[Rfam]
RNA sequence: GCACUGACUUCUCAUCCUAUCCCUGCUGCUAAGUGUAGGGCAAGGUCACUCAGUGCUAAAGCAAUGCAGAGGAAAUCCAGAUGGAGCAUGUUUUACUUUGUGUUCUGUCUCUACACCUCAGCCAUACUC
Dot-bracket structure: (((((........(((.(..((...............))..).))).....))))).........((.(((.......((((((((.......((...))..))))))))......))).)).......